Rfam assigns this 146-nucleotide sequence from Paramuricea clavata to the family "U12 minor spliceosomal RNA". Clan: U2 clan. The match comes from Rfam's covariance-model search (99 bits).
RNA sequence: UUGCCUUAAACUAAUGAGUAAGGAAAAUAACGAUCUGGGUGACGCCAGAUCUACGCAUAGAUUUAGCGUACCGAUUUUUGAAGGAUAGAGGUCGCCCUUGGACAGCUUGCUUACUUUCGCAGGAAGUCCUUGUGGAAGCGAUCUCC
Numbered sequence: 001u002u003g004c005c006u007u008a009a010a011c012u013a014a015u016g017a018g019u020a021a022g023g024a025a026a027a028u029a030a031c032g033a034u035c036u037g038g039g040u041g042a043c044g045c046c047a048g049a050u051c052u053a054c055g056c057a058u059a060g061a062u063u064u065a066g067c068g069u070a071c072c073g074a075u076u077u078u079u080g081a082a083g084g085a086u087a088g089a090g091g092u093c094g095c096c097c098u099u100g101g102a103c104a105g106c107u108u109g110c111u112u113a114c115u116u117u118c119g120c121a122g123g124a125a126g127u128c129c130u131u132g133u134g135g136a137a138g139c140g141a142u143c144u145c146c
Base pairs, nucleotide, nucleotide: 004023005022006021007020008019032051033050034049035048036047037046038045053069054068055067056066089144090143091142092141093140094139095138097132100129101128102127103126106123107122108121109120110119
Dot-bracket structure: ...(((((..........)))))........(((((((......))))))).((((.........))))...................(((((((.(..((((..(((((........)))))..))))..).....)))))))..
Pairs were carried over by alignment from the consensus structure.